A member of the RNA family "Y RNA" from Colobus angolensis, 102 nucleotides long.
Rfam classes the family as a non-coding RNA gene.
The family has 104 seed sequences and 26,986 matches in Rfam 15.1.
The source organism's lineage runs through Eukaryota, Haplorrhini, Cercopithecidae, Colobus and Colobus angolensis.
RNA sequence: GGCUUGUCCUAGUGCAGUGGUGUUUACAACUCAUUGAUCACAACCAGUUACAGAUUUCUUUGUCUCUUCUCCAGUCCCACUGCUUCACUUGGGUAGCCUUAA
Numbered sequence: 001g002g003c004u005u006g007u008c009c010u011a012g013u014g015c016a017g018u019g020g021u022g023u024u025u026a027c028a029a030c031u032c033a034u035u036g037a038u039c040a041c042a043a044c045c046a047g048u049u050a051c052a053g054a055u056u057u058c059u060u061u062g063u064c065u066c067u068u069c070u071c072c073a074g075u076c077c078c079a080c081u082g083c084u085u086c087a088c089u090u091g092g093g094u095a096g097c098c099u100u101a102a
Base pairs, nucleotide, nucleotide: 001098002097003096004095007092008091011089014086016081017080018079019078020077022076033063034062036060037059